[Rfam]
RNA sequence: AGAGGUCACAAGUUUGAGGCCAAAGUAGAAGUGCUCACAACAUGGCCUUGACAGAUUCUAACAAAUCUGCAAAUUCUGCU
Numbered sequence: 001a002g003a004g005g006u007c008a009c010a011a012g013u014u015u016g017a018g019g020c021c022a023a024a025g026u027a028g029a030a031g032u033g034c035u036c037a038c039a040a041c042a043u044g045g046c047c048u049u050g051a052c053a054g055a056u057u058c059u060a061a062c063a064a065a066u067c068u069g070c071a072a073a074u075u076c077u078g079c080u
Stems, first nucleotide, its partner, number of pairs: 017048005024080007031043003052069006
Rfam assigns this 80-nucleotide RNA from Alligator mississippiensis to the family "Mammalian CPEB3 ribozyme". The family's consensus secondary structure is taken from published work. The mammalian CPEB3 ribozyme is a self cleaving RNA located in the second intron of the CPEB3 gene which belongs to a family of genes regulating messenger RNA polyadenylation. This ribozyme is highly conserved and found only in mammals. The CPEB3 ribozyme is structurally and biochemically related to the human hepatitis delta virus (HDV) ribozyme and the HDV ribozyme is proposed to have arisen from the human transcriptome. There is currently only one other known self cleaving ribozyme in mammals, the CoTC motif.